[Rfam]
RNA sequence: AAAGGCUUCGAGCCAAUAAAGACAAGAAAAAUUGACUCAAGAACUAA
Numbered sequence: 001a002a003a004g005g006c007u008u009c010g011a012g013c014c015a016a017u018a019a020a021g022a023c024a025a026g027a028a029a030a031a032u033u034g035a036c037u038c039a040a041g042a043a044c045u046a047a
Base pairs, nucleotide, nucleotide: 007041008040010038011037012036014034015033016032017031
Shown here is a 47-nucleotide sequence from Centaurea solstitialis, a member of the family "Plastid-rpl16 group II-D1 intron". About the family: Plastid-rpl16 is a non-coding RNA (ncRNA) recognised in plastids. It was recognised in and intronic region of a ribosome rpl16 gene. On this family, see Richter et al., Plant Commun 2023: "Retrograde signaling in plants: A critical review focusing on the GUN pathway and beyond". Gene Ontology term of the family: Group II intron splicing. The base pairs follow the family's consensus structure, which was predicted with LocARNA.